[Rfam]
RNA sequence: CGGAGGGUGAAUUCCCAGGCGCCCGGGGUCUCGGCGGCGAUCUGGUGGGAGCCGACGUGGUCGCCCCCGGCCAGGACGCCCAGCUCCGUCUCCUCGUCGUACAGUCCGCUGCCCAGCUUGCGCAGUUUGCCGUGGGCGAUCAGGACGACGUGGUCGACCGGGCUUCCGGCCUCGACGACGACCUCGUCCGGCCCGAAGUCGCGCUGCACGCACCGGCCGGCGAGCCGGGCCAGGACCUCGGAGUCGGUGAAGCCGCGCAGCGGCGGCAGCUCCCGUAGCUCCUCGGGGAUGACGGCCACCUCGGCACCGGUGGUGGUGAACUCCACCCGGCCGUCGCCCAGGGUGUGGGUGAGCCGGCGGUUGACCCGGAAGGUGCCGCCCGACACCUGCACCCACGGCAGGACGCGCAGCAGCCAGCGCGAGGUGAUGGACUGCAUCUGCGGCGGCGUCUUGGUCGUGGUCGCCAGCUGCCGGGCCGCCGCCGGGGCGAGGCUCUGCCGCGCCGG
Numbered sequence: 001c002g003g004a005g006g007g008u009g010a011a012u013u014c015c016c017a018g019g020c021g022c023c024c025g026g027g028g029u030c031u032c033g034g035c036g037g038c039g040a041u042c043u044g045g046u047g048g049g050a051g052c053c054g055a056c057g058u059g060g061u062c063g064c065c066c067c068c069g070g071c072c073a074g075g076a077c078g079c080c081c082a083g084c085u086c087c088g089u090c091u092c093c094u095c096g097u098c099g100u101a102c103a104g105u106c107c108g109c110u111g112c113c114c115a116g117c118u119u120g121c122g123c124a125g126u127u128u129g130c131c132g133u134g135g136g137c138g139a140u141c142a143g144g145a146c147g148a149c150g151u152g153g154u155c156g157a158c159c160g161g162g163c164u165u166c167c168g169g170c171c172u173c174g175a176c177g178a179c180g181a182c183c184u185c186g187u188c189c190g191g192c193c194c195g196a197a198g199u200c201g202c203g204c205u206g207c208a209c210g211c212a213c214c215g216g217c218c219g220g221c222g223a224g225c226c227g228g229g230c231c232a233g234g235a236c237c238u239c240g241g242a243g244u245c246g247g248u249g250a251a252g253c254c255g256c257g258c259a260g261c262g263g264c265g266g267c268a269g270c271u272c273c274c275g276u277a278g279c280u281c282c283u284c285g286g287g288g289a290u291g292a293c294g295g296c297c298a299c300c301u302c303g304g305c306a307c308c309g310g311u312g313g314u315g316g317u318g319a320a321c322u323c324c325a326c327c328c329g330g331c332c333g334u335c336g337c338c339c340a341g342g343g344u345g346u347g348g349g350u351g352a353g354c355c356g357g358c359g360g361u362u363g364a365c366c367c368g369g370a371a372g373g374u375g376c377c378g379c380c381c382g383a384c385a386c387c388u389g390c391a392c393c394c395a396c397g398g399c400a401g402g403a404c405g406c407g408c409a410g411c412a413g414c415c416a417g418c419g420c421g422a423g424g425u426g427a428u429g430g431a432c433u434g435c436a437u438c439u440g441c442g443g444c445g446g447c448g449u450c451u452u453g454g455u456c457g458u459g460g461u462c463g464c465c466a467g468c469u470g471c472c473g474g475g476c477c478g479c480c481g482c483c484g485g486g487g488c489g490a491g492g493c494u495c496u497g498c499c500g501c502g503c504c505g506g
Stems, first nucleotide, its partner, number of pairs: 006393004011388001018331001021328001026324003031319002038316001040314003048308002051305005057236002061232001063230004069113003078106001081104001083102001086099001088097002120225002123222001126219001130215001132213002134209001136207003146203002153194001158191006164181002169176001238298001240296001243293004248288001253286003257282001259280003263274001265272001332345004354382001356380005364374003394434002399429002403425002406421003410418001440479004445472003448468001451467005483505003487501003491498001

Background: The family of this 506-nucleotide RNA from Streptomyces chumphonensis is "Saccharopolyspora sRNA 350". Rfam 15.1 lists 1,170 matches to the family in 705 species. The family's consensus secondary structure was predicted with RNAfold. For this family Rfam cites "Prediction and characterization of small non-coding RNAs related to secondary metabolites in Saccharopolyspora erythraea" (Liu et al., PLoS One, 2013).